[Rfam]
RNA sequence: GUUGGUAGAGCAGAGGAUUGAAAAUCCUCGUGUCGACAGUUCGAUUCUGUCUCGAGCCACCAUAUUCUAGAGAACAGUAAAAUACAUUGCGAUUUUACUGUUUUUGUUUUAUACUAGAGAAACUUAAAUGGGGGCGUUCUUGGAUUCGACGGGGAUGUUGAAGUUUGAGGUGCAUGUCGAGAAGGUCGAGAGUCUCGUAAAAACGCGGCAAUCAGUUAUAAUUGCAAACGAUAAUAACUACGCUUUAGCAGCUUAA
Dot-bracket structure: ((..(........((........(((.(((....(((((.......))))).((..((..........................................................................)))).............))).))).......)).......)..))((((............))))...........................................................
Numbered sequence: 001g002u003u004g005g006u007a008g009a010g011c012a013g014a015g016g017a018u019u020g021a022a023a024a025u026c027c028u029c030g031u032g033u034c035g036a037c038a039g040u041u042c043g044a045u046u047c048u049g050u051c052u053c054g055a056g057c058c059a060c061c062a063u064a065u066u067c068u069a070g071a072g073a074a075c076a077g078u079a080a081a082a083u084a085c086a087u088u089g090c091g092a093u094u095u096u097a098c099u100g101u102u103u104u105u106g107u108u109u110u111a112u113a114c115u116a117g118a119g120a121a122a123c124u125u126a127a128a129u130g131g132g133g134g135c136g137u138u139c140u141u142g143g144a145u146u147c148g149a150c151g152g153g154g155a156u157g158u159u160g161a162a163g164u165u166u167g168a169g170g171u172g173c174a175u176g177u178c179g180a181g182a183a184g185g186u187c188g189a190g191a192g193u194c195u196c197g198u199a200a201a202a203a204c205g206c207g208g209c210a211a212u213c214a215g216u217u218a219u220a221a222u223u224g225c226a227a228a229c230g231a232u233a234a235u236a237a238c239u240a241c242g243c244u245u246u247a248g249c250a251g252c253u254u255a256a
Stems, first nucleotide, its partner, number of pairs: 001177002005173001014165002024156003028152003035051005053136002057134002178197004
The record is a 256-nucleotide RNA from Wohlfahrtiimonas chitiniclastica, which matches "permuted transfer-messenger RNA" in Rfam. The family's RNA type in Rfam is non-coding RNA gene. Rfam describes the family as follows. Bacterial tmRNA, also known as 10Sa RNA or SsrA, is named for its dual tRNA and mRNA-like properties. A reference for the family is Williams (2002), "The tmRNA Website: invasion by an intron", Nucleic Acids Res. Taxonomically the source falls in Wohlfahrtiimonas chitiniclastica (Bacteria, Gammaproteobacteria, Cardiobacteriales, Wohlfahrtiimonas). Gene Ontology term of the family: RNA catabolic process. The family's consensus secondary structure is taken from published work.